[Rfam]
RNA sequence: CCAUCACCAUCAUCACCCUUGAAGGUCUUUCGGGGCGGUGGCGCAUACCCGGGAGACAAGAUUCUCCCGGUGGUUAAGCAAGUUUAGAAACCCUCGGGAUUAGCUCCCGGGGGUUUUUUUAU
Dot-bracket structure: ........((((((..(((.(........).)))..))))....)).((.((((((......))))))))...............((((((((((((((.....))))))))))))))....
Numbered sequence: 001c002c003a004u005c006a007c008c009a010u011c012a013u014c015a016c017c018c019u020u021g022a023a024g025g026u027c028u029u030u031c032g033g034g035g036c037g038g039u040g041g042c043g044c045a046u047a048c049c050c051g052g053g054a055g056a057c058a059a060g061a062u063u064c065u066c067c068c069g070g071u072g073g074u075u076a077a078g079c080a081a082g083u084u085u086a087g088a089a090a091c092c093c094u095c096g097g098g099a100u101u102a103g104c105u106c107c108c109g110g111g112g113g114u115u116u117u118u119u120u121a122u
Stems, first nucleotide, its partner, number of pairs: 009046002011040004017034003021030001048070002051068006086118014